Annotation
Rfam assigns this 147-nucleotide RNA from Aegilops tauschii to the family "small nucleolar RNA snoR137". The family's consensus secondary structure was predicted with RNAalifold. Taxonomically the source falls in Aegilops tauschii (Eukaryota, Liliopsida, Triticinae, Aegilops). Rfam links the family to the GO terms nucleolus and RNA processing. A reference for the family is Chen and Wu (2009), "Mining small RNA sequencing data: a new approach to identify small nucleolar RNAs in Arabidopsis", Nucleic Acids Res.
RNA sequence: GUUGCUUCACAACUGGAAGGAUGGCCUGUUGAUAACAGUUUGGACAUCCCGUAGAGGGAAAGCAUAGAUGAAUGGAAACACCGGCCAGUAUUAAACAGCAUGACGCUCUGUCAAACCGCGUCAUGUUACCUGUCUUCUGGCACAUUU
Numbered sequence: 001g002u003u004g005c006u007u008c009a010c011a012a013c014u015g016g017a018a019g020g021a022u023g024g025c026c027u028g029u030u031g032a033u034a035a036c037a038g039u040u041u042g043g044a045c046a047u048c049c050c051g052u053a054g055a056g057g058g059a060a061a062g063c064a065u066a067g068a069u070g071a072a073u074g075g076a077a078a079c080a081c082c083g084g085c086c087a088g089u090a091u092u093a094a095a096c097a098g099c100a101u102g103a104c105g106c107u108c109u110g111u112c113a114a115a116c117c118g119c120g121u122c123a124u125g126u127u128a129c130c131u132g133u134c135u136u137c138u139g140g141c142a143c144a145u146u147u
Base pairs, nucleotide, nucleotide: 003064004063005062006061007060017052019050020049022046023045025043026042084141085140086139087138088137090135097127098126099125101123102122103121104120105119